[Rfam]
RNA sequence: GCCAUUGAAAGUCAUGUGAAAAUACACUAUCUCAUGGGUGCCUCCGCAAUGAGGCUAUGGUGCUAAACCUUAUGUGCAAUAGAUGUACAGGACGCGGCUUCGAAGCCGCCGCCUCCACCAAGAACAGCCGAAGCCGACUGCUGUUGAUGGGGGCGAAAUGGGAUCGACUGGCAUUGAAAGACAUAAGCUGUGCUCGGCAUGAUACCACCGUUAUCGGGUCAAAAAGUGUAGUUGCAAACGACAACAACGCUAAGGAAUACGCUCUCGCUGCCUAAUGGCGGUGCGGGAAUUCCGCUCUAAGUCCUUUGAGGUAGCACUUUAAGGCGGGGUUCGGAGGUACCUGGCAACAGAAACCUCCACC
Dot-bracket structure: .......................................(((((......)))))...(((((.....(((((((........(((.(((...(((((......)))))(((((((................................)))))))............)))))).......)))))))..)))))[[[..(((..((.]]].....)).))).........................................................................................................[[[[..((((((]]]]..........))))))...
Numbered sequence: 001g002c003c004a005u006u007g008a009a010a011g012u013c014a015u016g017u018g019a020a021a022a023u024a025c026a027c028u029a030u031c032u033c034a035u036g037g038g039u040g041c042c043u044c045c046g047c048a049a050u051g052a053g054g055c056u057a058u059g060g061u062g063c064u065a066a067a068c069c070u071u072a073u074g075u076g077c078a079a080u081a082g083a084u085g086u087a088c089a090g091g092a093c094g095c096g097g098c099u100u101c102g103a104a105g106c107c108g109c110c111g112c113c114u115c116c117a118c119c120a121a122g123a124a125c126a127g128c129c130g131a132a133g134c135c136g137a138c139u140g141c142u143g144u145u146g147a148u149g150g151g152g153g154c155g156a157a158a159u160g161g162g163a164u165c166g167a168c169u170g171g172c173a174u175u176g177a178a179a180g181a182c183a184u185a186a187g188c189u190g191u192g193c194u195c196g197g198c199a200u201g202a203u204a205c206c207a208c209c210g211u212u213a214u215c216g217g218g219u220c221a222a223a224a225a226g227u228g229u230a231g232u233u234g235c236a237a238a239c240g241a242c243a244a245c246a247a248c249g250c251u252a253a254g255g256a257a258u259a260c261g262c263u264c265u266c267g268c269u270g271c272c273u274a275a276u277g278g279c280g281g282u283g284c285g286g287g288a289a290u291u292c293c294g295c296u297c298u299a300a301g302u303c304c305u306u307u308g309a310g311g312u313a314g315c316a317c318u319u320u321a322a323g324g325c326g327g328g329g330u331u332c333g334g335a336g337g338u339a340c341c342u343g344g345c346a347a348c349a350g351a352a353a354c355c356u357c358c359a360c361c
Stems, first nucleotide, its partner, number of pairs: 040055005059194005069187007084173003088170003094109005110155007195210003200221003205217002327342004333358006
A member of the RNA family "Alphaproteobacteria transfer-messenger RNA" from Rhizobium album, 361 nucleotides long. About the family: Bacterial tmRNA, also known as 10Sa RNA or SsrA, is named for its dual tRNA and mRNA-like properties. Rfam classes the family as a non-coding RNA gene. The base pairs follow the family's consensus structure, which is taken from published work. The source organism's lineage runs through Bacteria, Pseudomonadota, Hyphomicrobiales, Rhizobiaceae and Rhizobium. Its family is annotated with RNA catabolic process in the Gene Ontology.